IMES-1 RNA motif: a 193-nucleotide sequence. The sequence is in the family's curated seed alignment.
[Rfam]
RNA sequence: CUUGAUUCCGACUAACAAUCAACUGCAGACGGGAGUUAGAGAGGUCAAGAAGGAAGAGCCCAUAGGGUGAAAGCGUUGCUAAGAGUCGACGAUAAAAAAGAGCUUAGUGACCCACCAAGAGUUCAAGAGAAAGAACUCAAGGAGCCAGAGAGAAUCUCACUCAGGACCCCUAAGGAACUCGAAUUUAAAGAAA
Number, nucleotide and partner (000 for none) at each position: 001c049002u048003u047004g046005a000006u000007u000008c000009c000010g000011a000012c039013u038014a037015a036016c035017a000018a000019u000020c000021a000022a000023c000024u000025g000026c000027a000028g000029a000030c000031g000032g000033g000034a000035g016036u015037u014038a013039g012040a000041g000042a000043g000044g000045u000046c004047a003048a002049g001050a000051a000052g000053g000054a000055a000056g000057a000058g000059c000060c000061c174062a000063u172064a171065g170066g169067g000068u000069g000070a000071a000072a000073g000074c000075g111076u110077u109078g108079c107080u106081a105082a104083g103084a000085g000086u000087c000088g000089a000090c000091g000092a000093u000094a000095a000096a000097a000098a000099a000100g000101a000102g000103c083104u082105u081106a080107g079108u078109g077110a076111c075112c000113c000114a000115c000116c000117a000118a000119g138120a137121g136122u135123u134124c000125a000126a000127g158128a157129g156130a155131a000132a000133g000134a123135a122136c121137u120138c119139a000140a000141g000142g000143a000144g000145c165146c164147a000148g162149a161150g160151a000152g000153a000154a000155u130156c129157u128158c127159a000160c150161u149162c148163a000164g146165g145166a000167c000168c000169c066170c065171u064172a063173a000174g061175g000176a000177a000178c000179u000180c000181g000182a000183a000184u000185u000186u000187a000188a000189a000190g000191a000192a000193a000